Shown here is a 130-nucleotide RNA from Scleropages formosus, a member of the family "Small nucleolar RNA SNORA68". For this family Rfam cites "The family of box ACA small nucleolar RNAs is defined by an evolutionarily conserved secondary structure and ubiquitous sequence elements essential for RNA accumulation" (Ganot et al., Genes Dev, 1997). Rfam's curators write: U68 is a member of the H/ACA class of small nucleolar RNAs (snoRNAs) which act as guides in the the modification of uridines to pseudouridines. The family's consensus secondary structure was predicted with PFOLD. Gene Ontology terms of the family: RNA processing and nucleolus.

RNA sequence: GUGGCACACAAACCCAAAGGUCAUUAUAAGCACAUAUAAUGCUCUUGUCAUGUGUGCACACAUCAAAAAGAACCUCGUCGCCUUCCAUAAGCUGCUGUGCUGACGGAAGUGAAAUCGUGGAUCAACAGUU
Numbered sequence: 001g002u003g004g005c006a007c008a009c010a011a012a013c014c015c016a017a018a019g020g021u022c023a024u025u026a027u028a029a030g031c032a033c034a035u036a037u038a039a040u041g042c043u044c045u046u047g048u049c050a051u052g053u054g055u056g057c058a059c060a061c062a063u064c065a066a067a068a069a070g071a072a073c074c075u076c077g078u079c080g081c082c083u084u085c086c087a088u089a090a091g092c093u094g095c096u097g098u099g100c101u102g103a104c105g106g107a108a109g110u111g112a113a114a115u116c117g118u119g120g121a122u123c124a125a126c127a128g129u130u
Base pairs, nucleotide, nucleotide: 004057005056006055007054008053009052019044020043022041023040024039025038026037027036028035070123071122073120074119076117082109083108084107085106086105088103090101091100092099
By type it is an H/ACA-box small nucleolar RNA. The organism belongs to Scleropages, within Eukaryota. The family has 26 seed sequences and 1,079 matches in Rfam 15.1. The match comes from Rfam's covariance-model search (71 bits).